Rfam assigns this 147-nucleotide RNA sequence from Erpornis zantholeuca to the family "Small Cajal body specific RNA 3". About the family: scaRNAs are a specific class of small nuclear RNAs which localise to the Cajal bodies and guide the modification of RNA polymerase II transcribed spliceosomal RNAs U1, U2, U4, U5 and U12. The family's RNA type in Rfam is small Cajal body RNA. On this family, see Darzacq et al., EMBO J 2002: "Cajal body-specific small nuclear RNAs: a novel class of 2'-O-methylation and pseudouridylation guide RNAs".
RNA sequence: ACUGGAAGCUGCUGGGACCAGUUGGGUCCAGUCAUGGGCAAAAUAAAUAUUUCUUUUGUCCACUCUUGCAGCCUUCCUAGAGCAAAGUGGAGGUCUCUGUCUGCUUUAGGACAGCCAACUAAAUCAGAUCGUUCCCCUCCUUACAUG
Numbered sequence: 001a002c003u004g005g006a007a008g009c010u011g012c013u014g015g016g017a018c019c020a021g022u023u024g025g026g027u028c029c030a031g032u033c034a035u036g037g038g039c040a041a042a043a044u045a046a047a048u049a050u051u052u053c054u055u056u057u058g059u060c061c062a063c064u065c066u067u068g069c070a071g072c073c074u075u076c077c078u079a080g081a082g083c084a085a086a087g088u089g090g091a092g093g094u095c096u097c098u099g100u101c102u103g104c105u106u107u108a109g110g111a112c113a114g115c116c117a118a119c120u121a122a123a124u125c126a127g128a129u130c131g132u133u134c135c136c137c138u139c140c141u142u143a144c145a146u147g
Stems, first nucleotide, its partner, number of pairs: 004077003008072005031063001035062005045054001089140005097131001099129003103125001105123005